[Rfam]
RNA sequence: GUUGCGAUGCUAAUACGGUCUUGUCAAUGUUUAGGGGCGAAGACCUGACCAUGCAAGCUGAUACUUCAUGUGAAUUAUUGCUUGCGUAAGUGUUGGCCUUCACCCCUAAAUGUUGGCAAGACCUAAUUGGCACGCAAC
Number, nucleotide and partner (000 for none) at each position: 001g000002u137003u136004g135005c134006g133007a000008u132009g131010c130011u129012a128013a127014u126015a000016c000017g123018g122019u121020c120021u119022u118023g117024u116025c115026a114027a113028u112029g111030u110031u109032u108033a107034g106035g105036g104037g103038c000039g000040a000041a099042g098043a000044c000045c096046u095047g000048a094049c000050c092051a091052u000053g000054c000055a000056a000057g000058c000059u000060g000061a000062u000063a000064c000065u000066u000067c000068a087069u086070g085071u084072g083073a082074a000075u080076u000077a000078u000079u000080g075081c000082u073083u072084g071085c070086g069087u068088a000089a000090g000091u051092g050093u000094u048095g046096g045097c000098c042099u041100u000101c000102a000103c037104c036105c035106c034107u033108a032109a031110a030111u029112g028113u027114u026115g025116g024117c023118a022119a021120g020121a019122c018123c017124u000125a000126a014127u013128u012129g011130g010131c009132a008133c006134g005135c004136a003137a002138c000
RNA: MIR904 microRNA precursor family